[Rfam]
A member of the RNA family "Betaproteobacteria toxic small RNA" from Pandoraea pnomenusa, 60 nucleotides long. The literature on the family includes a 2017 paper in Sci Rep by Sass et al., "Identification of small RNAs abundant in Burkholderia cenocepacia biofilms reveal putative regulators with a potential role in carbon and iron metabolism". Rfam 15.1 lists 951 matches to the family in 508 species. Rfam describes the family as follows. Overexpression in amino aid rich medium attenuates growth, suggesting role in repressing amino acid intake and metabolism.
RNA sequence: UGUCUCCUCCACCUCCUCCUGGUGGAUUUCACGGCCAGCAACGCGCUGGCCGUUUUUUUU
Numbered sequence: 001u002g003u004c005u006c007c008u009c010c011a012c013c014u015c016c017u018c019c020u021g022g023u024g025g026a027u028u029u030c031a032c033g034g035c036c037a038g039c040a041a042c043g044c045g046c047u048g049g050c051c052g053u054u055u056u057u058u059u060u
Stems, first nucleotide, its partner, number of pairs: 008026006031053008
Dot-bracket structure: .......((((((.......))))))....((((((((.......)))))))).......